[Rfam]
RNA sequence: GGCCCGAAUUCGAAGUAUAGUAGAUUAUUAAGGUCAGCUGUUACUACUAAUCUACUCUGCUUCAAAUUUGGGCCC
Numbered sequence: 001g002g003c004c005c006g007a008a009u010u011c012g013a014a015g016u017a018u019a020g021u022a023g024a025u026u027a028u029u030a031a032g033g034u035c036a037g038c039u040g041u042u043a044c045u046a047c048u049a050a051u052c053u054a055c056u057c058u059g060c061u062u063c064a065a066a067u068u069u070g071g072g073c074c075c
Base pairs, nucleotide, nucleotide: 001074002073003072004071005070006069007068008067009066012063013062014061015060016059017058019056020055021054022053023052025050026049027048029046030045033042035040